[Rfam]
Nucleotides: 241
Base pairs, nucleotide, nucleotide: 001058002057003056004055005054006053007052010028012025013024015022016021029048030047031046032045061227062226063225064224066079067078068077069076070075085221087219088218089217090216091215092214093213095211107141108140111135112134113133114132115131116130117129118128119237122234123233124232125231126230144189145188146187147186148185149184150183151182152181153180158177159176160175161174162173
Number, partner (000 for none) and nucleotide at each position: 001058g002057u003056c004055a005054a006053c007052u008000a009000c010028c011000c012025c013024g014000g015022a016021c017000u018000g019000a020000a021016g022015u023000c024013c025012g026000g027000a028010g029048c030047u031046u032045g033000c034000a035000a036000g037000g038000a039000g040000g041000u042000a043000c044000g045032c046031a047030g048029g049000u050000u051000g052007g053006g054005u055004u056003g057002a058001c059000c060000a061227g062226g063225g064224g065000g066079c067078c068077g069076g070075a071000g072000u073000a074000a075070u076069c077068c078067g079066g080000c081000a082000g083000a084000c085221g086000u087219u088218g089217g090216a091215u092214a093213c094000g095211g096000g097000u098000c099000g100000c101000u102000c103000a104000g105000a106000c107141g108140c109000a110000c111135c112134a113133g114132u115131g116130g117129a118128u119237g120000c121000u122234u123233c124232c125231u126230c127000a128118g129117u130116c131115c132114a133113c134112u135111g136000c137000u138000c139000u140108g141107c142000a143000a144189g145188g146187u147186u148185g149184g150183g151182a152181u153180c154000g155000u156000g157000c158177u159176g160175g161174c162173g163000a164000a165000a166000g167000g168000u169000a170000a171000a172000a173162c174161g175160c176159c177158g178000a179000a180153g181152g182151u183150u184149u185148c186147a187146g188145c189144c190000g191000c192000u193000g194000c195000u196000g197000g198000a199000a200000a201000c202000a203000g204000c205000a206000g207000g208000a209000g210000c211095c212000g213093g214092u215091a216090u217089c218088c219087a220000u221085c222000c223000g224064c225063c226062c227061c228000g229000a230126g231125g232124g233123g234122a235000u236000a237119u238000u239000g240000a241000c

Background
A member of the RNA family "HNH endonuclease-associated RNA and ORF (HEARO) RNA" from Acidithiobacillus ferrooxidans, 241 nucleotides long. On this family, see Weinberg et al., Nature 2009: "Exceptional structured noncoding RNAs revealed by bacterial metagenome analysis". Pairs were carried over by alignment from the consensus structure, which is taken from published work. The source organism's lineage runs through Bacteria, Pseudomonadati, Acidithiobacillales, Acidithiobacillaceae and Acidithiobacillus ferrooxidans.